ZMP/ZTP riboswitch aptamer (pfl RNA motif): an 83-nucleotide sequence from Saccharibacillus brassicae. Lineage of the source: Bacteria > Bacillati > Bacillota > Caryophanales > Saccharibacillus.
RNA sequence: CAGAUCCGGUGUAACUGGCGACAAAUGUGGGUUCAACCACGAUGGAGCACCGGAGUUAUCGGCCGGUCGCCUGGGCAAAGAGC
Numbered sequence: 001c002a003g004a005u006c007c008g009g010u011g012u013a014a015c016u017g018g019c020g021a022c023a024a025a026u027g028u029g030g031g032u033u034c035a036a037c038c039a040c041g042a043u044g045g046a047g048c049a050c051c052g053g054a055g056u057u058a059u060c061g062g063c064c065g066g067u068c069g070c071c072u073g074g075g076c077a078a079a080g081a082g083c
Base pairs, nucleotide, nucleotide: 003056005054006053007052008051009050010049011048012047015044017071018070019069020068021067027040028039029038030037062076063075064074